[Rfam]
RNA: Purine riboswitch aptamer
RNA sequence: UGGUAAAAAUGAAUAUAGACUCGUAUAUACCUGGUAAUAUGGACUGGGCGUUUCUACCUGCAAACCGUAAAAGUGCGGACUACGAGGCGUUGUUGGAUGAUU
Numbered sequence: 001u002g003g004u005a006a007a008a009a010u011g012a013a014u015a016u017a018g019a020c021u022c023g024u025a026u027a028u029a030c031c032u033g034g035u036a037a038u039a040u041g042g043a044c045u046g047g048g049c050g051u052u053u054c055u056a057c058c059u060g061c062a063a064a065c066c067g068u069a070a071a072a073g074u075g076c077g078g079a080c081u082a083c084g085a086g087g088c089g090u091u092g093u094u095g096g097a098u099g100a101u102u
Base pairs, nucleotide, nucleotide: 018088020086021085022084023083024082025081030048031047032046033045034044035043058078059077060076061075062074